This 162-nucleotide RNA from Streptomyces phaeofaciens belongs to the Rfam family "c-di-AMP riboswitch aptamer (ydaO/yuaA leader)". About the family: This family represents a conserved RNA structure found upstream of the ydaO and yuaA genes in Bacillus subtilis and related genes in other bacteria. A search with the family's covariance model found it, with a score of 68 bits. Gene Ontology terms of the family: cyclic-di-AMP binding and regulation of gene expression.
[Rfam]
RNA sequence: GAGUCCGGCACGCCCCCUUCGCGGCAGCCGGAGCCGGGGACCCACCGAGACUCUGGGGUGAAUCGGCCCGACCCCUUUCCGGGGAACGGGCCGUAGGGCAACCCUUCCGAACCAUCCGCCCGAACCCGACAGCUAACCCGGUAGGCGGACGAUGGAAGGAGU
Numbered sequence: 001g002a003g004u005c006c007g008g009c010a011c012g013c014c015c016c017c018u019u020c021g022c023g024g025c026a027g028c029c030g031g032a033g034c035c036g037g038g039g040a041c042c043c044a045c046c047g048a049g050a051c052u053c054u055g056g057g058g059u060g061a062a063u064c065g066g067c068c069c070g071a072c073c074c075c076u077u078u079c080c081g082g083g084g085a086a087c088g089g090g091c092c093g094u095a096g097g098g099c100a101a102c103c104c105u106u107c108c109g110a111a112c113c114a115u116c117c118g119c120c121c122g123a124a125c126c127c128g129a130c131a132g133c134u135a136a137c138c139c140g141g142u143a144g145g146c147g148g149a150c151g152a153u154g155g156a157a158g159g160a161g162u
Base pairs, nucleotide, nucleotide: 004032005031006030007029008028009027033142034141035140036139037138038137043055044054056127057126058125064093065092066091067090068089069088070087096121097120098119099118